This 90-nucleotide sequence from Nyctereutes procyonoides belongs to the Rfam family "mir-8799 microRNA precursor family".
Lineage of the source: Eukaryota > Chordata > Carnivora > Caniformia > Nyctereutes.
The base pairs follow the family's consensus structure, which was predicted with RNAalifold.
[Rfam]
RNA sequence: CGGGGGAGGCCGGAUCCUGGGCUGUGUCCCGGCGCCCUGUGCUCCGGGGCCUGCGCUGUGGGAUUCGCGCUGCCGCCCGCAGCCCCUCCG
Numbered sequence: 001c002g003g004g005g006g007a008g009g010c011c012g013g014a015u016c017c018u019g020g021g022c023u024g025u026g027u028c029c030c031g032g033c034g035c036c037c038u039g040u041g042c043u044c045c046g047g048g049g050c051c052u053g054c055g056c057u058g059u060g061g062g063a064u065u066c067g068c069g070c071u072g073c074c075g076c077c078c079g080c081a082g083c084c085c086c087u088c089c090g
Stems, first nucleotide, its partner, number of pairs: 001090006011079003017075001019073001021071001023069004027063003030058006039051001041050003